Shown here is an 80-nucleotide RNA sequence from Cucurbita maxima, a member of the family "Small nucleolar RNA R160".
Nucleotides: 080
Base pairs, nucleotide, nucleotide: 001080002079003078004077005076
Number, partner (000 for none) and nucleotide at each position: 001080g002079g003078c004077a005076a006000a007000a008000g009000g010000a011000u012000g013000a014000a015000a016000c017000c018000u019000u020000u021000g022000u023000c024000g025000u026000c027000u028000g029000a030000a031000a032000c033000c034000g035000a036000u037000g038000u039000g040000g041000a042000g043000c044000u045000u046000a047000a048000u049000a050000u051000c052000a053000u054000u055000c056000u057000g058000g059000u060000c061000u062000u063000c064000a065000a066000a067000g068000u069000u070000c071000u072000c073000u074000g075000a076005u077004u078003g079002c080001u
Lineage of the source: Eukaryota > Pentapetalae > Cucurbitales > Cucurbiteae > Cucurbita. The family has 9 seed sequences and 799 matches in Rfam 15.1. Rfam's curators write: snoR160 is a C/D box small nucleolar RNA, which acts as a methylation guide for 25S ribosomal RNA in plants. snoR160 has been alternatively named snoZ270 in rice. It scores 52 bits against the family's covariance model.